A member of the RNA family "c-di-GMP-I-GGC riboswitch aptamer" from a Solemya velum gill symbiont, 90 nucleotides long. It scores 66 bits against the family's covariance model. Its Rfam clan is "c-di-GMP_I riboswitch clan".

[Rfam]
RNA sequence: UAUGUAAAAGGCAAACCUCUUGAAAGAGAGGGACGCAAAGCCACCGGCCUGACUGACAUUCAUUUGUUAAAGGUAGCGGGGUUGCACAAA
Numbered sequence: 001u002a003u004g005u006a007a008a009a010g011g012c013a014a015a016c017c018u019c020u021u022g023a024a025a026g027a028g029a030g031g032g033a034c035g036c037a038a039a040g041c042c043a044c045c046g047g048c049c050u051g052a053c054u055g056a057c058a059u060u061c062a063u064u065u066g067u068u069a070a071a072g073g074u075a076g077c078g079g080g081g082u083u084g085c086a087c088a089a090a
Base pairs, nucleotide, nucleotide: 001090011036012035016031017030018029019028020027021026034076039083040082041081042080044079045078046077047074048073049072